Rfam assigns this 53-nucleotide RNA to the family "Streptococcus sRNA SpF59 (ldcC RNA)". Rfam's curators put it in the seed alignment.

[Rfam]
RNA sequence: UGACCACCUUCCUUUGGAGAGUUAAGGCAACGGUGUGCCGGGUCAAAUGCCGA
Numbered sequence: 001u002g003a004c005c006a007c008c009u010u011c012c013u014u015u016g017g018a019g020a021g022u023u024a025a026g027g028c029a030a031c032g033g034u035g036u037g038c039c040g041g042g043u044c045a046a047a048u049g050c051c052g053a
Stems, first nucleotide, its partner, number of pairs: 001045005006022002008019004